[Rfam]
RNA sequence: AUGUGACGGGUGGGCUUCCCUUUGUCAUCCUUUGCCCAGGGCUCUGAGUGGGGCGGGGACAGCAAAGGGGUGCCCAAUUGUCACCUGU
Dot-bracket structure: ................((((((.((..(((((.((((.............)))))))))..)).))))))..................
Numbered sequence: 001a002u003g004u005g006a007c008g009g010g011u012g013g014g015c016u017u018c019c020c021u022u023u024g025u026c027a028u029c030c031u032u033u034g035c036c037c038a039g040g041g042c043u044c045u046g047a048g049u050g051g052g053g054c055g056g057g058g059a060c061a062g063c064a065a066a067g068g069g070g071u072g073c074c075c076a077a078u079u080g081u082c083a084c085c086u087g088u
Stems, first nucleotide, its partner, number of pairs: 017070006024063002028059005034054004
Shown here is an 88-nucleotide RNA from Hipposideros armiger, a member of the family "mir-204 microRNA precursor family".
Taxonomically the source falls in Hipposideros (Eukaryota, Euteleostomi, Tetrapoda, Laurasiatheria).
A search with the family's covariance model found it, with a score of 90 bits.
Rfam 15.1 lists 1,730 matches to the family in 644 species.